The record is an 86-nucleotide RNA sequence from Chromobacterium violaceum, which matches "Glycine riboswitch aptamer" in Rfam. For this family Rfam cites "A glycine-dependent riboswitch that uses cooperative binding to control gene expression" (Mandal et al., Science, 2004). A search with the family's covariance model found it, with a score of 51 bits. Taxonomically the source falls in Chromobacterium violaceum (Bacteria, Pseudomonadati, Neisseriales, Chromobacterium).
RNA sequence: UCCGGUUCUGCGGGAGAGAGGGGCCACGCCCCCGCCGAAGACGCAAGCUCCCAUAAUCGCUCAGGCAACCGUACCGCAGCGCCGUA
Numbered sequence: 001u002c003c004g005g006u007u008c009u010g011c012g013g014g015a016g017a018g019a020g021g022g023g024c025c026a027c028g029c030c031c032c033c034g035c036c037g038a039a040g041a042c043g044c045a046a047g048c049u050c051c052c053a054u055a056a057u058c059g060c061u062c063a064g065g066c067a068a069c070c071g072u073a074c075c076g077c078a079g080c081g082c083c084g085u086a
Stems, first nucleotide, its partner, number of pairs: 006081001008079006020032004034066003037062002042059002047054001